[Rfam]
RNA sequence: CGAUCGUGCGGCUAGGGUUCCGGCCUGUUCAGGCGUCUGGUCCGAGAGCCGCCGGCCCGGCCGCGCGGCGGGGCUCCACGGAGGGACAAAAGCCCGGGAGGA
Numbered sequence: 001c002g003a004u005c006g007u008g009c010g011g012c013u014a015g016g017g018u019u020c021c022g023g024c025c026u027g028u029u030c031a032g033g034c035g036u037c038u039g040g041u042c043c044g045a046g047a048g049c050c051g052c053c054g055g056c057c058c059g060g061c062c063g064c065g066c067g068g069c070g071g072g073g074c075u076c077c078a079c080g081g082a083g084g085g086a087c088a089a090a091a092g093c094c095c096g097g098g099a100g101g102a
Stems, first nucleotide, its partner, number of pairs: 008052005015043002020040002022037001023034004054075005060069002077097001079100001083095003
Rfam assigns this 102-nucleotide RNA from Parasulfuritortus cantonensis to the family "Guanidine-I riboswitch aptamer". Pairs were carried over by alignment from the consensus structure.